The record is a 78-nucleotide RNA sequence from Piaya cayana, which matches "mir-103/107 microRNA precursor family" in Rfam. The base pairs follow the family's consensus structure, which was predicted with RNAalifold. On this family, see Mourelatos et al., Genes Dev 2002: "miRNPs: a novel class of ribonucleoproteins containing numerous microRNAs". Gene Ontology terms of the family: RISC complex and miRNA-mediated post-transcriptional gene silencing. This family consists of the mammalian microRNA (miRNA) precursors mir-103 and mir107. Animal miRNAs are transcribed as ~70nt precursors and subsequently processed by the Dicer enzyme to give a ~22nt product. In this case the mature sequence comes from the 3' arm of the precursor. The organism belongs to Piaya, within Eukaryota.
[Rfam]
Nucleotides: 078
Base pairs, nucleotide, nucleotide: 014064015063016062017061019059020058021057022056023055024054025053026052027051028050030049031048032047033046
Number, partner (000 for none) and nucleotide at each position: 001000u002000u003000g004000g005000g006000c007000u008000u009000u010000c011000a012000g013000c014064u015063u016062c017061u018000u019059u020058a021057c022056a023055g024054u025053g026052c027051u028050g029000c030049c031048u032047u033046g034000u035000u036000g037000c038000a039000u040000a041000u042000g043000g044000a045000u046033c047032a048031a049030g050028c051027a052026g053025c054024a055023u056022u057021g058020u059019a060000c061017a062016g063015g064014g065000c066000u067000a068000u069000g070000a071000a072000a073000g074000a075000a076000c077000a078000g